[Rfam]
RNA sequence: GCCCUGGUGGCGAAAUUGGUAGACGCAGCAGACUCAAAAUCUGCCGGCUUCAAACCCGUGCCGGUUCGAGUCCGGCCCAGGGCA
Numbered sequence: 001g002c003c004c005u006g007g008u009g010g011c012g013a014a015a016u017u018g019g020u021a022g023a024c025g026c027a028g029c030a031g032a033c034u035c036a037a038a039a040u041c042u043g044c045c046g047g048c049u050u051c052a053a054a055c056c057c058g059u060g061c062c063g064g065u066u067c068g069a070g071u072c073c074g075g076c077c078c079a080g081g082g083c084a
Stems, first nucleotide, its partner, number of pairs: 001083007010026003028044005060076005